[Rfam]
Shown here is a 210-nucleotide RNA sequence from Marinisporobacter balticus, a member of the family "Group II catalytic intron D1-D4-3". NCBI's taxonomy places the organism under Bacteria, Bacillati, Peptostreptococcales, Thermotaleaceae, Marinisporobacter. Rfam links the family to the GO term Group II intron splicing. The base pairs follow the family's consensus structure.

RNA sequence: UUCACCGUGAAGUGGAAUCUAAAGUAAUUUACCAACGAAUUGUAAACAAUUCCGUUGCUCAAAGGAAGCCUAAGACAAAACUCUGGUCUGAGGUACACGAACUACAUUCGAGGCUUAACCUUGUGGAUGAGAUUGCAAUUCAAAUCAAAGUCCUAGACUAUCCAAAACAGAAAGCGUGGGAAUAUGCAAAUACAUGAAAAGGAUAUUAGA
Numbered sequence: 001u002u003c004a005c006c007g008u009g010a011a012g013u014g015g016a017a018u019c020u021a022a023a024g025u026a027a028u029u030u031a032c033c034a035a036c037g038a039a040u041u042g043u044a045a046a047c048a049a050u051u052c053c054g055u056u057g058c059u060c061a062a063a064g065g066a067a068g069c070c071u072a073a074g075a076c077a078a079a080a081c082u083c084u085g086g087u088c089u090g091a092g093g094u095a096c097a098c099g100a101a102c103u104a105c106a107u108u109c110g111a112g113g114c115u116u117a118a119c120c121u122u123g124u125g126g127a128u129g130a131g132a133u134u135g136c137a138a139u140u141c142a143a144a145u146c147a148a149a150g151u152c153c154u155a156g157a158c159u160a161u162c163c164a165a166a167a168c169a170g171a172a173a174g175c176g177u178g179g180g181a182a183u184a185u186g187c188a189a190a191u192a193c194a195u196g197a198a199a200a201g202g203a204u205a206u207u208a209g210a
Stems, first nucleotide, its partner, number of pairs: 001016005070209003075204001076202001081196001084194002086191002089188002102186001106185002114180002117177001120174003125153004131146004